[Rfam]
RNA sequence: GUGCUUAUGGCAGAACCAUUCCUAGAGCUAUGACCAUGGCACUGUUUAUAGCUCUGCAAAUGGCUCUGCCAUCGGCAC
Numbered sequence: 001g002u003g004c005u006u007a008u009g010g011c012a013g014a015a016c017c018a019u020u021c022c023u024a025g026a027g028c029u030a031u032g033a034c035c036a037u038g039g040c041a042c043u044g045u046u047u048a049u050a051g052c053u054c055u056g057c058a059a060a061u062g063g064c065u066c067u068g069c070c071a072u073c074g075g076c077a078c
Base pairs, nucleotide, nucleotide: 002077003076004075007072008071009070011068012067013066016063017062018061019060020059024055025054026053027052028051029050030049031048
RNA: mir-458 microRNA precursor family
Organism: Vireo altiloquus